[Rfam]
RNA sequence: GGCCUUCUUGUUCUUACCACAGGCUGUGUUCUUACACUGAUUGUUCAGAAAUAGGAGGCAAAGUAAAUCUACUCCAUAUCCACCUCAACUCAGGCCCUGUGCCUGGUCUGUGUUGUGAAUGGGGAGACAUAG
Numbered sequence: 001g002g003c004c005u006u007c008u009u010g011u012u013c014u015u016a017c018c019a020c021a022g023g024c025u026g027u028g029u030u031c032u033u034a035c036a037c038u039g040a041u042u043g044u045u046c047a048g049a050a051a052u053a054g055g056a057g058g059c060a061a062a063g064u065a066a067a068u069c070u071a072c073u074c075c076a077u078a079u080c081c082a083c084c085u086c087a088a089c090u091c092a093g094g095c096c097c098u099g100u101g102c103c104u105g106g107u108c109u110g111u112g113u114u115g116u117g118a119a120u121g122g123g124g125a126g127a128c129a130u131a132g
Base pairs, nucleotide, nucleotide: 002059003058004057005056006055007054008053020043021042022041026037027036028035029034072124073123074122075121076120077119086110087109090106091105092104093103094102095101
The family of this 132-nucleotide RNA sequence from Castor canadensis is "Small nucleolar RNA SNORA51". Rfam describes the family as follows. ACA51 is a member of the H/ACA class of snoRNA that guide the sites of modification of uridines to pseudouridines. Rfam links the family to the GO terms RNA processing and nucleolus.